[Rfam]
RNA sequence: GUUGGAUGCUUUCACAACGGAUCGUCCGGCACGUACCUGCCGGUGAAGGAGAUAAAA
Numbered sequence: 001g002u003u004g005g006a007u008g009c010u011u012u013c014a015c016a017a018c019g020g021a022u023c024g025u026c027c028g029g030c031a032c033g034u035a036c037c038u039g040c041c042g043g044u045g046a047a048g049g050a051g052a053u054a055a056a057a
Base pairs, nucleotide, nucleotide: 009049010048011047012046013045014044026043027042028041029040030039031038
msiK RNA: a 57-nucleotide RNA sequence. The family's consensus secondary structure is taken from published work.